The record is a 61-nucleotide RNA sequence from Salmo salar, which matches "mir-29 microRNA precursor family" in Rfam.
The family has 168 seed sequences and 3,328 matches in Rfam 15.1.
From the family's description: This family represents the microRNA (miRNA) precursors mir-29.
The family's consensus secondary structure was predicted with PFOLD.
Rfam's curators put it in the seed alignment.
A reference for the family is Ambros (2001), "microRNAs: tiny regulators with great potential", Cell.
Lineage of the source: Eukaryota > Bilateria > Deuterostomia > Actinopterygii > Salmo.
Gene Ontology terms of the family: gene silencing by miRNA and RISC complex.
[Rfam]
RNA sequence: ACUGAUUUCUUCUGGUGUUUAGAGCCCCUUACAGCCUUCUAGCACCAUUUGAAAUCGGUUA
Number, nucleotide and partner (000 for none) at each position: 001a000002c058003u057004g056005a055006u054007u053008u052009c051010u000011u000012c000013u047014g046015g045016u044017g043018u000019u000020u041021a040022g039023a038024g000025c000026c000027c000028c000029u000030u000031a000032c000033a000034g000035c000036c000037u000038u023039c022040u021041a020042g000043c017044a016045c015046c014047a013048u000049u000050u000051g009052a008053a007054a006055u005056c004057g003058g002059u000060u000061a000